A member of the RNA family "Small nucleolar RNA SNORA42/SNORA80 family" from Cnephaeus nilssonii, 137 nucleotides long. Rfam describes the family as follows. The members of this family belong to the H/ACA class of snoRNAs that guide the sites of modification of uridines to pseudouridines. A search with the family's covariance model found it, with a score of 101 bits.
RNA sequence: GCAUGGCAAUGGGUUUCUGGUGGGCCCUUCUCUGUAGGCCUCUCAUAGUGUACCCAUGCCAGAAUAAACUGCAGCCCCGAAUCAUUGCCCCGCCUCCUUACCCGUGGGCUGUGAGCACUGAAGGGGAGUGCCCAGUU
Numbered sequence: 001g002c003a004u005g006g007c008a009a010u011g012g013g014u015u016u017c018u019g020g021u022g023g024g025c026c027c028u029u030c031u032c033u034g035u036a037g038g039c040c041u042c043u044c045a046u047a048g049u050g051u052a053c054c055c056a057u058g059c060c061a062g063a064a065u066a067a068a069c070u071g072c073a074g075c076c077c078c079g080a081a082u083c084a085u086u087g088c089c090c091c092g093c094c095u096c097c098u099u100a101c102c103c104g105u106g107g108g109c110u111g112u113g114a115g116c117a118c119u120g121a122a123g124g125g126g127a128g129u130g131c132c133c134a135g136u137u
Stems, first nucleotide, its partner, number of pairs: 001059004005054002008051001015048002018045003022041003025037001072130002076126002083120002088115001090111001092109004